[Rfam]
RNA sequence: CUUAGGCGCGGGCUUCAACCCGCGCCAUGGCUAUAACCAGAGCAGCAGCCAUAAGCUGCGGCUCUUAUUUUGAAGAAAUGAGACAAGCAGGGGCAUCCGGGCUGGUACCCGGACUAUCAGUGUGAUCCUAAGUGGCUUGUUUUGGUCGCUGCAUUCGGACUUCUGCAAGCUUGCUCGGUGUCGGCACCGAUGGUGUUCCCCUAACCGAGGGUGACCA
Numbered sequence: 001c002u003u004a005g006g007c008g009c010g011g012g013c014u015u016c017a018a019c020c021c022g023c024g025c026c027a028u029g030g031c032u033a034u035a036a037c038c039a040g041a042g043c044a045g046c047a048g049c050c051a052u053a054a055g056c057u058g059c060g061g062c063u064c065u066u067a068u069u070u071u072g073a074a075g076a077a078a079u080g081a082g083a084c085a086a087g088c089a090g091g092g093g094c095a096u097c098c099g100g101g102c103u104g105g106u107a108c109c110c111g112g113a114c115u116a117u118c119a120g121u122g123u124g125a126u127c128c129u130a131a132g133u134g135g136c137u138u139g140u141u142u143u144g145g146u147c148g149c150u151g152c153a154u155u156c157g158g159a160c161u162u163c164u165g166c167a168a169g170c171u172u173g174c175u176c177g178g179u180g181u182c183g184g185c186a187c188c189g190a191u192g193g194u195g196u197u198c199c200c201c202u203a204a205c206c207g208a209g210g211g212u213g214a215c216c217a
Stems, first nucleotide, its partner, number of pairs: 001030002005026008040064004045059005089202005094195002096113006114193005120187003124182002127178002131175005136169005144161004
RNA: sucA-II RNA